This 62-nucleotide RNA from Phocoena sinus belongs to the Rfam family "Gag/pol translational readthrough site". Taxonomically the source falls in Phocoena (Eukaryota, Opisthokonta, Deuterostomia, Chordata). For this family Rfam cites "Pseudoknot-dependent read-through of retroviral gag termination codons: importance of sequences in the spacer and loop 2" (Wills et al., EMBO J, 1994).
[Rfam]
RNA sequence: GUGGGGGGACGGGGUUCGGACCCCCUCCCCGAACCCAGGGUAACCCUACAAGUGGAGGGGAA
Dot-bracket structure: .......[.[.[[[[[.[[..((((((]].].]]]]..].].............))))))..
Numbered sequence: 001g002u003g004g005g006g007g008g009a010c011g012g013g014g015u016u017c018g019g020a021c022c023c024c025c026u027c028c029c030c031g032a033a034c035c036c037a038g039g040g041u042a043a044c045c046c047u048a049c050a051a052g053u054g055g056a057g058g059g060g061a062a
Stems, first nucleotide, its partner, number of pairs: 008041001010039001012036004016031001018029002022060006